[Rfam]
RNA: Actino-pnp RNA
RNA sequence: GUCGGUCCUCGGUAGUGAAGUUCGGCUCAAUGAGCCGCGCUUCUCGAUCGAAGAUCGAC
Number, nucleotide and partner (000 for none) at each position: 001g059002u058003c057004g056005g055006u054007c053008c000009u051010c050011g049012g048013u047014a000015g000016u000017g043018a042019a041020g040021u039022u000023c037024g036025g035026c034027u033028c032029a000030a000031u000032g028033a027034g026035c025036c024037g023038c000039g021040c020041u019042u018043c017044u000045c000046g000047a013048u012049c011050g010051a009052a000053g007054a006055u005056c004057g003058a002059c001